[Rfam]
This 126-nucleotide RNA from Nannospalax galili belongs to the Rfam family "Small nucleolar RNA SNORA25". The base pairs follow the family's consensus structure, which was predicted with RNAfold. Rfam's curators write: ACA25 is a member of the H/ACA class of snoRNA that guide the sites of modification of uridines to pseudouridines. The family's RNA type in Rfam is H/ACA-box small nucleolar RNA.
RNA sequence: AGGUCAUUUCAAAGAGGGUUUGUUGGGCUUUAAACCCAAAGCUCUUAACGCUGUGACCAGAUUGAGGCUCUUCACAGAAUGCCAGAGGCACUUUCUAGUGCUGUGUUCUUCUGAGGAGAUAUGGGA
Numbered sequence: 001a002g003g004u005c006a007u008u009u010c011a012a013a014g015a016g017g018g019u020u021u022g023u024u025g026g027g028c029u030u031u032a033a034a035c036c037c038a039a040a041g042c043u044c045u046u047a048a049c050g051c052u053g054u055g056a057c058c059a060g061a062u063u064g065a066g067g068c069u070c071u072u073c074a075c076a077g078a079a080u081g082c083c084a085g086a087g088g089c090a091c092u093u094u095c096u097a098g099u100g101c102u103g104u105g106u107u108c109u110u111c112u113g114a115g116g117a118g119a120u121a122u123g124g125g126a
Base pairs, nucleotide, nucleotide: 002058003057004056005055006054007053014046015045016044017043018042019041020040021039023038026036027035069119070118071117072116073115076112077111078110079109084104086102087101089100090099091098092097